[Rfam]
RNA sequence: ACCUUAUCAAGAGUGGUGGAGGGAACGGCCCUGUGAAGCCCGGCAACCUGCGUAAAGCGUGGUGCCAAAUCCGGCGGUGAUUAUCGAGAGAUGAGGC
Numbered sequence: 001a002c003c004u005u006a007u008c009a010a011g012a013g014u015g016g017u018g019g020a021g022g023g024a025a026c027g028g029c030c031c032u033g034u035g036a037a038g039c040c041c042g043g044c045a046a047c048c049u050g051c052g053u054a055a056a057g058c059g060u061g062g063u064g065c066c067a068a069a070u071c072c073g074g075c076g077g078u079g080a081u082u083a084u085c086g087a088g089a090g091a092u093g094a095g096g097c
Base pairs, nucleotide, nucleotide: 002096003095004094005093006092007091008090013041015040016039017038021031022030023029026073027072028071042066043065044064045063047062048061049059050058051057070089075086076085077084078083
Shown here is a 97-nucleotide sequence from Firmicutes bacterium CAG:555, a member of the family "SAM riboswitch aptamer (S box leader)". From the family's description: The SAM riboswitch is found upstream of a number of genes which code for proteins involved in methionine or cysteine biosynthesis in Gram-positive bacteria. Lineage of the source: Bacteria > Bacillati > Bacillota. A search with the family's covariance model found it, with a score of 79 bits.